[Rfam]
RNA sequence: GUCUUUGGUCAGUUUUGCUGGUUUGCAUUCAGCUUUGACUCCGUUGCUGUGCAAAUCCAUGCAAAACUGACCAAGGCA
Numbered sequence: 001g002u003c004u005u006u007g008g009u010c011a012g013u014u015u016u017g018c019u020g021g022u023u024u025g026c027a028u029u030c031a032g033c034u035u036u037g038a039c040u041c042c043g044u045u046g047c048u049g050u051g052c053a054a055a056u057c058c059a060u061g062c063a064a065a066a067c068u069g070a071c072c073a074a075g076g077c078a
Stems, first nucleotide, its partner, number of pairs: 003076016020058002022055007031048003

Rfam assigns this 78-nucleotide RNA sequence from Albula goreensis to the family "mir-19 microRNA precursor family". For this family Rfam cites "Identification of novel genes coding for small expressed RNAs" (Lagos-Quintana et al., Science, 2001). Pairs were carried over by alignment from the consensus structure, which was predicted with RNAalifold.